[Rfam]
RNA sequence: GGGGUGCGCAAUAGACUUACCUCCACGUGGUGCACCCUGGACAACGUGUCUUUGUACGGCAAAAAAGUCUAU
Numbered sequence: 001g002g003g004g005u006g007c008g009c010a011a012u013a014g015a016c017u018u019a020c021c022u023c024c025a026c027g028u029g030g031u032g033c034a035c036c037c038u039g040g041a042c043a044a045c046g047u048g049u050c051u052u053u054g055u056a057c058g059g060c061a062a063a064a065a066a067g068u069c070u071a072u
Stems, first nucleotide, its partner, number of pairs: 001038007019031003045058005

Overview:
Shown here is a 72-nucleotide RNA sequence from Rodentolepis nana, a member of the family "HDV ribozyme from F. prausnitzii". Its family is annotated with catalytic activity in the Gene Ontology. For this family Rfam cites "Widespread occurrence of self-cleaving ribozymes" (Webb et al., Science, 2009). It scores 46 bits against the family's covariance model. Rfam 15.1 lists 3,803 matches to the family in 91 species. Taxonomically the source falls in Rodentolepis (Eukaryota, Spiralia, Neodermata, Hymenolepididae).